A member of the RNA family "mir-29 microRNA precursor family" from Haemaphysalis longicornis, 68 nucleotides long. The family has 168 seed sequences and 3,328 matches in Rfam 15.1.
[Rfam]
RNA sequence: GGUCACUGAGUUCGUUUGGUGGGUAGAAGUACAUGCUAAGCUCUAGCACCAUUUGAAUUCAGUUCAUC
Number, nucleotide and partner (000 for none) at each position: 001g068002g067003u066004c000005a063006c062007u061008g060009a059010g058011u057012u056013c055014g054015u000016u000017u051018g050019g049020u048021g047022g000023g000024u045025a044026g043027a042028a000029g000030u000031a000032c000033a000034u000035g000036c000037u000038a000039a000040g000041c000042u027043c026044u025045a024046g000047c021048a020049c019050c018051a017052u000053u000054u014055g013056a012057a011058u010059u009060c008061a007062g006063u005064u000065c000066a003067u002068c001

This family represents the microRNA (miRNA) precursors mir-29.